[Rfam]
RNA: Eukaryotic large subunit ribosomal RNA, nucleotides 432 to 886
RNA sequence: CGGGUGGGGUCCGCGCAGUCUGCCCGGGGGAUUCAACUCGGCGGGCCCGGGGACGCCGCGCGGUGUGGGAGGAUCCCCUCGCGGGACCUCCCCCGCUGCCGGCUGGCCCCCGCCGGGCGCAUUUCCUCCGCGGCGGUGCGUCGCGACCGGCUCCGGUUCGGCCAGGAAGGGUCUGGGGCGAAGGUGGCUCGCGGCCUCGGCCGCGAGCUUUACAGCGCCUCUCGCCCGGAAUUCGCCGCUUACCGGGGCCGCGGACUCUGUGCUCGCUGCGCCCUCUCUCCCCUAACCCGGGGAGGGACGGGGCCCCUCGCUCCCGGCGCGACUGUCGACCGGGGCGGACUGUCCUCAGUGCGCUCCAACCGCGUCGCGCCGCCAGGGCGGGGAUCGGCCCACGCCAAAGGCGCAACGGGUCUGCGGCGAUGUCGGCUACCCACCCGACCCGUCUUGAAACACGG
Numbered sequence: 001c002g003g004g005u006g007g008g009g010u011c012c013g014c015g016c017a018g019u020c021u022g023c024c025c026g027g028g029g030g031a032u033u034c035a036a037c038u039c040g041g042c043g044g045g046c047c048c049g050g051g052g053a054c055g056c057c058g059c060g061c062g063g064u065g066u067g068g069g070a071g072g073a074u075c076c077c078c079u080c081g082c083g084g085g086a087c088c089u090c091c092c093c094c095g096c097u098g099c100c101g102g103c104u105g106g107c108c109c110c111c112g113c114c115g116g117g118c119g120c121a122u123u124u125c126c127u128c129c130g131c132g133g134c135g136g137u138g139c140g141u142c143g144c145g146a147c148c149g150g151c152u153c154c155g156g157u158u159c160g161g162c163c164a165g166g167a168a169g170g171g172u173c174u175g176g177g178g179c180g181a182a183g184g185u186g187g188c189u190c191g192c193g194g195c196c197u198c199g200g201c202c203g204c205g206a207g208c209u210u211u212a213c214a215g216c217g218c219c220u221c222u223c224g225c226c227c228g229g230a231a232u233u234c235g236c237c238g239c240u241u242a243c244c245g246g247g248g249c250c251g252c253g254g255a256c257u258c259u260g261u262g263c264u265c266g267c268u269g270c271g272c273c274c275u276c277u278c279u280c281c282c283c284u285a286a287c288c289c290g291g292g293g294a295g296g297g298a299c300g301g302g303g304c305c306c307c308u309c310g311c312u313c314c315c316g317g318c319g320c321g322a323c324u325g326u327c328g329a330c331c332g333g334g335g336c337g338g339a340c341u342g343u344c345c346u347c348a349g350u351g352c353g354c355u356c357c358a359a360c361c362g363c364g365u366c367g368c369g370c371c372g373c374c375a376g377g378g379c380g381g382g383g384a385u386c387g388g389c390c391c392a393c394g395c396c397a398a399a400g401g402c403g404c405a406a407c408g409g410g411u412c413u414g415c416g417g418c419g420a421u422g423u424c425g426g427c428u429a430c431c432c433a434c435c436c437g438a439c440c441c442g443u444c445u446u447g448a449a450a451c452a453c454g455g
Stems, first nucleotide, its partner, number of pairs: 001437008012426001440455004